[Rfam]
RNA sequence: UUCUUAUCAAGAGAGGCUGAGGGACUGACCCAACGACGCCUCGGCAACCGGCCAGCUUUCCGGCACGGUGCCAAUUUCAGAGGAGCUACCGACUCGGUGUGCUCCGAAGAUGAGAA
Numbered sequence: 001u002u003c004u005u006a007u008c009a010a011g012a013g014a015g016g017c018u019g020a021g022g023g024a025c026u027g028a029c030c031c032a033a034c035g036a037c038g039c040c041u042c043g044g045c046a047a048c049c050g051g052c053c054a055g056c057u058u059u060c061c062g063g064c065a066c067g068g069u070g071c072c073a074a075u076u077u078c079a080g081a082g083g084a085g086c087u088a089c090c091g092a093c094u095c096g097g098u099g100u101g102c103u104c105c106g107a108a109g110a111u112g113a114g115a116a
Stems, first nucleotide, its partner, number of pairs: 001116008013042005021031003025080004043072004048068002050064001052062001076108001082105005
RNA: SAM riboswitch aptamer (S box leader)
Organism: Alicyclobacillaceae bacterium